[Rfam]
RNA: Small Cajal body specific RNA 6
RNA sequence: GGUCGAUGAUGACAAAGAAGUUUUCUGAGGGCACAGGGAAAUUCCACCCUAUUACCCCCUUGGCUCCCAGCAGUCCCAGUAUUCUAUCAUGCCAUAGUAGAGCUGUGAUGGAGGAAGAGACUGCUGACAGUUUGGGAUUAAUUCAGUUCCAGUUCUCCACAGUAAAGGGAGUUGUGGCACCAAAUGUAAUCCAACAAAUCUGGUGAAGAGGAGCUCAUGGUGAUAGGGUGUCCUCAAUUGCUGUGCAUGAUCAAAGGUUUUCAAGCUGAGACC
Numbered sequence: 001g002g003u004c005g006a007u008g009a010u011g012a013c014a015a016a017g018a019a020g021u022u023u024u025c026u027g028a029g030g031g032c033a034c035a036g037g038g039a040a041a042u043u044c045c046a047c048c049c050u051a052u053u054a055c056c057c058c059c060u061u062g063g064c065u066c067c068c069a070g071c072a073g074u075c076c077c078a079g080u081a082u083u084c085u086a087u088c089a090u091g092c093c094a095u096a097g098u099a100g101a102g103c104u105g106u107g108a109u110g111g112a113g114g115a116a117g118a119g120a121c122u123g124c125u126g127a128c129a130g131u132u133u134g135g136g137a138u139u140a141a142u143u144c145a146g147u148u149c150c151a152g153u154u155c156u157c158c159a160c161a162g163u164a165a166a167g168g169g170a171g172u173u174g175u176g177g178c179a180c181c182a183a184a185u186g187u188a189a190u191c192c193a194a195c196a197a198a199u200c201u202g203g204u205g206a207a208g209a210g211g212a213g214c215u216c217a218u219g220g221u222g223a224u225a226g227g228g229u230g231u232c233c234u235c236a237a238u239u240g241c242u243g244u245g246c247a248u249g250a251u252c253a254a255a256g257g258u259u260u261u262c263a264a265g266c267u268g269a270g271a272c273c
Stems, first nucleotide, its partner, number of pairs: 001273004036252002042250002045230008064213004068126007083112009092102001134192001136191005149177003155171004